Shown here is a 102-nucleotide sequence from Gordonia bronchialis, a member of the family "mraW RNA". The base pairs follow the family's consensus structure, which is taken from published work. NCBI's taxonomy places the organism under Bacteria, Bacillati, Gordoniaceae, Gordonia, Gordonia bronchialis. By type it is a cis-regulatory element. The match comes from Rfam's covariance-model search (65 bits).
RNA sequence: GGCUUCGGGUGGUACGAGGCCCCGGCCCGGUUCGACCCUGGCGUACUUCCCCAACGCCAGGUGCGUGACCGGACCGGGACCCCGCCCCACCCGACGAAUUCC
Dot-bracket structure: .........(((..((.((.(((((.((((((((..((((((((.........))))))))..)).)))))).))))).)).))..))).............